[Rfam]
RNA sequence: AAAUUUAAUAGGCAAACCUAAGGAAACUUAGGGACGCAAAGCUAUAGGGACUAAGGUAUAUACUAUGUCAGCCAGUUGCCAAA
Numbered sequence: 001a002a003a004u005u006u007a008a009u010a011g012g013c014a015a016a017c018c019u020a021a022g023g024a025a026a027c028u029u030a031g032g033g034a035c036g037c038a039a040a041g042c043u044a045u046a047g048g049g050a051c052u053a054a055g056g057u058a059u060a061u062a063c064u065a066u067g068u069c070a071g072c073c074a075g076u077u078g079c080c081a082a083a
Stems, first nucleotide, its partner, number of pairs: 012037002017032006040077004047073002049069003056063002

The family of this 83-nucleotide RNA from Romboutsia ilealis is "c-di-GMP-I riboswitch aptamer". Rfam's curators write: GEMM was predicted in a large-scale screen for bacterial structured RNA regulatory elements. The source organism's lineage runs through Bacteria, Bacillati, Bacillota, Peptostreptococcales and Romboutsia. It scores 82 bits against the family's covariance model.